Rfam assigns this 98-nucleotide RNA sequence from Helicobacter sp. MIT 99-5507 to the family "Bacterial small signal recognition particle RNA".
From the family's description: The signal recognition particle (SRP) is a universally conserved ribonucleoprotein involved in the co-translational targeting of proteins to membranes.
A search with the family's covariance model found it, with a score of 59 bits.
The family's consensus secondary structure is taken from published work.
RNA sequence: UUUUUAGACCUAUGCAAUGGGUGUUAUAGGCAAUGCUUCAGGGUGGGAACACAGCAGAGCCCCUAUAAUAUUUAUGUGCCAUAGUAAUCUGAAAAAGG
Numbered sequence: 001u002u003u004u005u006a007g008a009c010c011u012a013u014g015c016a017a018u019g020g021g022u023g024u025u026a027u028a029g030g031c032a033a034u035g036c037u038u039c040a041g042g043g044u045g046g047g048a049a050c051a052c053a054g055c056a057g058a059g060c061c062c063c064u065a066u067a068a069u070a071u072u073u074a075u076g077u078g079c080c081a082u083a084g085u086a087a088u089c090u091g092a093a094a095a096a097g098g
Base pairs, nucleotide, nucleotide: 004092005091006090007089008088010084011083012082013081014080015076017075018074019073020072021071022070024068025067026066027065028064029063030062035060036059037058038057043052044051045050